[Rfam]
RNA sequence: UGUAUCUGUGAUGAUAUUUUGGCUCCCUCUACUGAACGUAGUGAGGAGAACCGCCAUCGUUACCCAAAUGUGUCUGAGGUGCA
Numbered sequence: 001u002g003u004a005u006c007u008g009u010g011a012u013g014a015u016a017u018u019u020u021g022g023c024u025c026c027c028u029c030u031a032c033u034g035a036a037c038g039u040a041g042u043g044a045g046g047a048g049a050a051c052c053g054c055c056a057u058c059g060u061u062a063c064c065c066a067a068a069u070g071u072g073u074c075u076g077a078g079g080u081g082c083a
Base pairs, nucleotide, nucleotide: 001083002082003081004080005079006078
Dot-bracket structure: ((((((.......................................................................))))))
The record is an 83-nucleotide RNA sequence from Megalops atlanticus, which matches "Small nucleolar RNA SNORD100" in Rfam. Rfam classes the family as a C/D-box small nucleolar RNA. The source organism's lineage runs through Eukaryota, Opisthokonta, Metazoa, Craniata and Megalops. Clan: SNORD100 clan.